[Rfam]
A member of the RNA family "Guanidine-II riboswitch aptamer (mini-ykkC)" from Stappia taiwanensis, 51 nucleotides long. Gene Ontology term of the family: regulation of gene expression. The source organism's lineage runs through Bacteria, Pseudomonadati, Hyphomicrobiales, Stappiaceae and Stappia. The match comes from Rfam's covariance-model search (34 bits). Rfam 15.1 lists 1,589 matches to the family in 1,229 species.

RNA sequence: AAGUGAGGACGACCUCCCCCGGCUCGGGACAAUUCGUUCGGGACGACCCGA
Number, nucleotide and partner (000 for none) at each position: 001a000002a000003g018004u000005g016006a015007g014008g013009a000010c000011g000012a000013c008014c007015u006016c005017c000018c003019c000020c000021g000022g000023c000024u000025c000026g000027g000028g000029a000030c000031a000032a000033u000034u000035c000036g000037u000038u051039c050040g049041g048042g047043a000044c000045g000046a000047c042048c041049c040050g039051a038